[Rfam]
RNA sequence: UGGGCAGGGAGAGGUCAUAGCCGAUUUUUCUCUAAUCCUAAAUACCAAGAGGAUCUGGGCAGUGCUCUUUUGCUCCUUGCACACUGUUUUUCUGGCUUUCAGUGUGUGGAAAAGGCUUGACCUACCCAUGACCACUGUCCACUUAGGAGCAAAAAAGAAAAUGUCAGCAUGGCUGGUCUGCCCUUCCUCAGGACCUGCGGAGGCUCCUGCACUCUAGGGCCAUGUGUGGGCGGGGCUUCUCAGCCCAUAGAGUUUGCCUCUGUCAGCCAGCCACAGGGGCAACAGGGGCGGCUCAGGUCUUGUGACUGCAGGGAUAGAAACAGAGCUUUCCCAGCAUGGUGUGCUUCCCUGACCUGUGGGAAGUGUUCUGGGACUCAGCUCCUAUGAAG
Numbered sequence: 001u002g003g004g005c006a007g008g009g010a011g012a013g014g015u016c017a018u019a020g021c022c023g024a025u026u027u028u029u030c031u032c033u034a035a036u037c038c039u040a041a042a043u044a045c046c047a048a049g050a051g052g053a054u055c056u057g058g059g060c061a062g063u064g065c066u067c068u069u070u071u072g073c074u075c076c077u078u079g080c081a082c083a084c085u086g087u088u089u090u091u092c093u094g095g096c097u098u099u100c101a102g103u104g105u106g107u108g109g110a111a112a113a114g115g116c117u118u119g120a121c122c123u124a125c126c127c128a129u130g131a132c133c134a135c136u137g138u139c140c141a142c143u144u145a146g147g148a149g150c151a152a153a154a155a156a157g158a159a160a161a162u163g164u165c166a167g168c169a170u171g172g173c174u175g176g177u178c179u180g181c182c183c184u185u186c187c188u189c190a191g192g193a194c195c196u197g198c199g200g201a202g203g204c205u206c207c208u209g210c211a212c213u214c215u216a217g218g219g220c221c222a223u224g225u226g227u228g229g230g231c232g233g234g235g236c237u238u239c240u241c242a243g244c245c246c247a248u249a250g251a252g253u254u255u256g257c258c259u260c261u262g263u264c265a266g267c268c269a270g271c272c273a274c275a276g277g278g279g280c281a282a283c284a285g286g287g288g289c290g291g292c293u294c295a296g297g298u299c300u301u302g303u304g305a306c307u308g309c310a311g312g313g314a315u316a317g318a319a320a321c322a323g324a325g326c327u328u329u330c331c332c333a334g335c336a337u338g339g340u341g342u343g344c345u346u347c348c349c350u351g352a353c354c355u356g357u358g359g360g361a362a363g364u365g366u367u368c369u370g371g372g373a374c375u376c377a378g379c380u381c382c383u384a385u386g387a388a389g
Stems, first nucleotide, its partner, number of pairs: 005191001007189003011185004016180002019174005066115005078108009095164002097161003194312007207291004212287004220278002223275003232246003249261004323381004329373003339368001341366003346361004
The family of this 389-nucleotide sequence from Chinchilla lanigera is "Vertebrate telomerase RNA". A reference for the family is Fragnet et al. (2005), "Comparative functional study of the viral telomerase RNA based on natural mutations", J Biol Chem. NCBI's taxonomy places the organism under Eukaryota, Eumetazoa, Vertebrata, Teleostomi, Chinchilla. Rfam's curators write: Telomerase is a ribonucleoprotein reverse transcriptase that synthesises telomeric DNA. Telomerase RNAs differ greatly in sequence and structure between vertebrates, ciliates and yeasts, but they share a 5' pseudoknot structure close to the template sequence. Vertebrate telomerase RNAs have a 3' H/ACA snoRNA-like domain. Its Rfam clan is "Telomerase clan".